[Rfam]
RNA: MIR2617 microRNA precursor family
Organism: Medicago truncatula
RNA sequence: AAGUAGUGUGACAUGCCCGUUUGGGAUAUACUCUGAUGUUUAUUUGUUAUUUAAUUGUUUUGGGAUAACGGGGUGUUACACAUU
Numbered sequence: 001a002a003g004u005a006g007u008g009u010g011a012c013a014u015g016c017c018c019g020u021u022u023g024g025g026a027u028a029u030a031c032u033c034u035g036a037u038g039u040u041u042a043u044u045u046g047u048u049a050u051u052u053a054a055u056u057g058u059u060u061u062g063g064g065a066u067a068a069c070g071g072g073g074u075g076u077u078a079c080a081c082a083u084u
Base pairs, nucleotide, nucleotide: 003084006081007080008079009078010077011076012075013074014073016072017071018070019069020068021067